Shown here is a 136-nucleotide sequence from Sphaerisporangium album, a member of the family "c-di-AMP riboswitch aptamer (ydaO/yuaA leader)".
This family represents a conserved RNA structure found upstream of the ydaO and yuaA genes in Bacillus subtilis and related genes in other bacteria.
The organism belongs to Sphaerisporangium, within Bacteria.
The match comes from Rfam's covariance-model search (86 bits).
[Rfam]
RNA sequence: ACGGCCGGUACGCCUAAUCCCGGGUGCCCCGCCCGGGAGCCGGGGACCCAACGGUUCUUGGGGUGAAUCCACGUCGUGGUAGGGCUGCUCCGGCCCGAACCCGUCAGCUAACCCGGUCGGCGGAUGGAGAGGAGAG
Numbered sequence: 001a002c003g004g005c006c007g008g009u010a011c012g013c014c015u016a017a018u019c020c021c022g023g024g025u026g027c028c029c030c031g032c033c034c035g036g037g038a039g040c041c042g043g044g045g046a047c048c049c050a051a052c053g054g055u056u057c058u059u060g061g062g063g064u065g066a067a068u069c070c071a072c073g074u075c076g077u078g079g080u081a082g083g084g085c086u087g088c089u090c091c092g093g094c095c096c097g098a099a100c101c102c103g104u105c106a107g108c109u110a111a112c113c114c115g116g117u118c119g120g121c122g123g124a125u126g127g128a129g130a131g132g133a134g135a136g
Stems, first nucleotide, its partner, number of pairs: 011122004018038009039117006049060002061102003069079004082096004